[Rfam]
RNA: c-di-GMP-I riboswitch aptamer
RNA sequence: UACAUGUUUGGGCAAAGCUAUCGAAAGGUAGUGACGCAAAGCUAUAGGGACUAAUUCUCCUUAUGGGGGUAUGUCAGCCAGUUGCUAAA
Numbered sequence: 001u002a003c004a005u006g007u008u009u010g011g012g013c014a015a016a017g018c019u020a021u022c023g024a025a026a027g028g029u030a031g032u033g034a035c036g037c038a039a040a041g042c043u044a045u046a047g048g049g050a051c052u053a054a055u056u057c058u059c060c061u062u063a064u065g066g067g068g069g070u071a072u073g074u075c076a077g078c079c080a081g082u083u084g085c086u087a088a089a
Stems, first nucleotide, its partner, number of pairs: 012037002017032006040083004047079002049075003056069004